[Rfam]
RNA sequence: AAUCGUCCGAUCUGCUUACGUAGACCGCAGUUCGACUCAAGCCAAAGGACGGGGACUUGAG
Numbered sequence: 001a002a003u004c005g006u007c008c009g010a011u012c013u014g015c016u017u018a019c020g021u022a023g024a025c026c027g028c029a030g031u032u033c034g035a036c037u038c039a040a041g042c043c044a045a046a047g048g049a050c051g052g053g054g055a056c057u058u059g060a061g
Base pairs, nucleotide, nucleotide: 004051005050006049007048008047011024012023013022014021036061037060038059039058040057041056042054043053
RNA: Glutamine-II riboswitch aptamer